[Rfam]
RNA sequence: GGCUUUCUGAAUCCGUUCUGAGAUCUCAUCAGACGCCGAUCCACCAGGGGUGAUGAAACUUCCGAAAUAAGUGAAGCG
Numbered sequence: 001g002g003c004u005u006u007c008u009g010a011a012u013c014c015g016u017u018c019u020g021a022g023a024u025c026u027c028a029u030c031a032g033a034c035g036c037c038g039a040u041c042c043a044c045c046a047g048g049g050g051u052g053a054u055g056a057a058a059c060u061u062c063c064g065a066a067a068u069a070a071g072u073g074a075a076g077c078g
Stems, first nucleotide, its partner, number of pairs: 002077005008071001011068002016064001020061003024058001026056005

A member of the RNA family "mir-3492 microRNA precursor family" from Schistosoma japonicum, 78 nucleotides long.
The match comes from Rfam's covariance-model search (46 bits).
Rfam 15.1 lists 21,496 matches to the family in 13 species.
Rfam links the family to the GO terms RISC complex and miRNA-mediated post-transcriptional gene silencing.
The family's consensus secondary structure was predicted with RNAalifold.